A member of the RNA family "Small nucleolar RNA Z247" from Dichanthelium oligosanthes, 139 nucleotides long. Rfam classes the family as a C/D-box small nucleolar RNA. Rfam links the family to the GO terms RNA processing and nucleolus.
RNA sequence: CCUCUCGAAGAUGAUGAAUUGGUGGAGUACAUCUUCACCAGGCUAGAUGACGAGUAUGACUCGUUGGUCUCCGCUGUUCUUGCUCGAUCUGAUAUGAUCUCAGUAAGCGAGCCGUACUCCCAGAUGCUUGCUUUUGAGA
Numbered sequence: 001c002c003u004c005u006c007g008a009a010g011a012u013g014a015u016g017a018a019u020u021g022g023u024g025g026a027g028u029a030c031a032u033c034u035u036c037a038c039c040a041g042g043c044u045a046g047a048u049g050a051c052g053a054g055u056a057u058g059a060c061u062c063g064u065u066g067g068u069c070u071c072c073g074c075u076g077u078u079c080u081u082g083c084u085c086g087a088u089c090u091g092a093u094a095u096g097a098u099c100u101c102a103g104u105a106a107g108c109g110a111g112c113c114g115u116a117c118u119c120c121c122a123g124a125u126g127c128u129u130g131c132u133u134u135u136g137a138g139a
Stems, first nucleotide, its partner, number of pairs: 004138005089107002092104002
The match comes from Rfam's covariance-model search (45 bits). On this family, see Chen et al., Nucleic Acids Res 2003: "The high diversity of snoRNAs in plants: identification and comparative study of 120 snoRNA genes from Oryza sativa".